RNA sequence: UGUAAUAUAUUUGAAGGGAUGAUGAUGGGACAAUGAUUAAAUAAUUCUAUUUUACACGUAAAAUGUAUAUGCAUUUUCACAUAAAAUAGGAUUAGUCUGCCCACUUAUUACCUUUAUCAUGCCGUUUUCUUGGCUUAUUUGAUAAUGAAUUCUAAUCCUUCUGAAGCUUUUUCAGGAGGUUUUUUAU
Numbered sequence: 001u002g003u004a005a006u007a008u009a010u011u012u013g014a015a016g017g018g019a020u021g022a023u024g025a026u027g028g029g030a031c032a033a034u035g036a037u038u039a040a041a042u043a044a045u046u047c048u049a050u051u052u053u054a055c056a057c058g059u060a061a062a063a064u065g066u067a068u069a070u071g072c073a074u075u076u077u078c079a080c081a082u083a084a085a086a087u088a089g090g091a092u093u094a095g096u097c098u099g100c101c102c103a104c105u106u107a108u109u110a111c112c113u114u115u116a117u118c119a120u121g122c123c124g125u126u127u128u129c130u131u132g133g134c135u136u137a138u139u140u141g142a143u144a145a146u147g148a149a150u151u152c153u154a155a156u157c158c159u160u161c162u163g164a165a166g167c168u169u170u171u172u173c174a175g176g177a178g179g180u181u182u183u184u185u186a187u
Stems, first nucleotide, its partner, number of pairs: 016109002019106001023103002029097003042094013060077007117141001121134004154182002157179008
RNA: Bacillus sRNA ncr1575